[Rfam]
RNA: mir-160 microRNA precursor family
Nucleotides: 088
Base pairs, nucleotide, nucleotide: 001088002087003086004085005084006083008081009080010079011078012077013076014075016073018071019070020069021068022067023066024065027062028061029060
Number, partner (000 for none) and nucleotide at each position: 001088a002087u003086g004085u005084g006083c007000c008081u009080g010079g011078c012077u013076c014075c015000c016073u017000g018071g019070a020069u021068g022067c023066c024065a025000u026000c027062u028061a029060a030000g031000c032000a033000a034000c035000u036000a037000g038000u039000c040000a041000a042000u043000c044000a045000g046000a047000a048000u049000g050000u051000u052000g053000a054000c055000u056000u057000u058000u059000c060029u061028u062027a063000g064000u065024u066023g067022g068021c069020a070019u071018c072000a073016g074000g075014g076013g077012a078011g079010u080009c081008a082000u083006g084005c085004a086003u087002a088001u